The family of this 108-nucleotide sequence from Psychrobacillus insolitus is "SAM riboswitch aptamer (S box leader)". It scores 97 bits against the family's covariance model. Taxonomically the source falls in Psychrobacillus (Bacteria, Bacillati, Bacillota, Caryophanales). Rfam describes the family as follows. The SAM riboswitch is found upstream of a number of genes which code for proteins involved in methionine or cysteine biosynthesis in Gram-positive bacteria. The base pairs follow the family's consensus structure, which is taken from published work.
RNA sequence: UUCUUAUCACGAGAAGCUGAGGGAAAUGGCCCUUUGAAGCUUCAGCAACCUCUGACUUUGUCAGAAAGGUGCUAACUCCUACAAGGCAUUUGUCUUGAAAGAUAAGAU
Numbered sequence: 001u002u003c004u005u006a007u008c009a010c011g012a013g014a015a016g017c018u019g020a021g022g023g024a025a026a027u028g029g030c031c032c033u034u035u036g037a038a039g040c041u042u043c044a045g046c047a048a049c050c051u052c053u054g055a056c057u058u059u060g061u062c063a064g065a066a067a068g069g070u071g072c073u074a075a076c077u078c079c080u081a082c083a084a085g086g087c088a089u090u091u092g093u094c095u096u097g098a099a100a101g102a103u104a105a106g107a108u
Stems, first nucleotide, its partner, number of pairs: 002107007013043005021032003028079002044073004049069002051065004077100001082097006